[Rfam]
RNA: Archaeal large subunit ribosomal RNA, nucleotides 2659 to 2914
Organism: Thermogymnomonas acidicola
RNA sequence: CGGUGUCUGAAGGGAAGGAGCCUUUAGUACGAGAGGAACGGGGGUUCGUGGCUUCUGGUUUACCGGUUGUCUGGCAAGGCACUGCCGGGUAGCCACGCCAUACGCGGAUAAGAGCUGAAGGCAUCUAAGCUCGAAGCCGCCCCUGAAAAUAGACACCGUCAUCAGGGCUCUCCUAAAAGAGGAGGUUGAUAGAGCCGGGAUGUAAGUGCCGAGCUGCUGCGAGGCAUUAAGUCCACGGCCACUAAUCGCCCGAAAG
Numbered sequence: 001c002g003g004u005g006u007c008u009g010a011a012g013g014g015a016a017g018g019a020g021c022c023u024u025u026a027g028u029a030c031g032a033g034a035g036g037a038a039c040g041g042g043g044g045u046u047c048g049u050g051g052c053u054u055c056u057g058g059u060u061u062a063c064c065g066g067u068u069g070u071c072u073g074g075c076a077a078g079g080c081a082c083u084g085c086c087g088g089g090u091a092g093c094c095a096c097g098c099c100a101u102a103c104g105c106g107g108a109u110a111a112g113a114g115c116u117g118a119a120g121g122c123a124u125c126u127a128a129g130c131u132c133g134a135a136g137c138c139g140c141c142c143c144u145g146a147a148a149a150u151a152g153a154c155a156c157c158g159u160c161a162u163c164a165g166g167g168c169u170c171u172c173c174u175a176a177a178a179g180a181g182g183a184g185g186u187u188g189a190u191a192g193a194g195c196c197g198g199g200a201u202g203u204a205a206g207u208g209c210c211g212a213g214c215u216g217c218u219g220c221g222a223g224g225c226a227u228u229a230a231g232u233c234c235a236c237g238g239c240c241a242c243u244a245a246u247c248g249c250c251c252g253a254a255a256g
Stems, first nucleotide, its partner, number of pairs: 001158008011144004017047003021043004048101005056095003063088005068081005105139003112132005165251004169185005190244003194239004198234003206227005213220001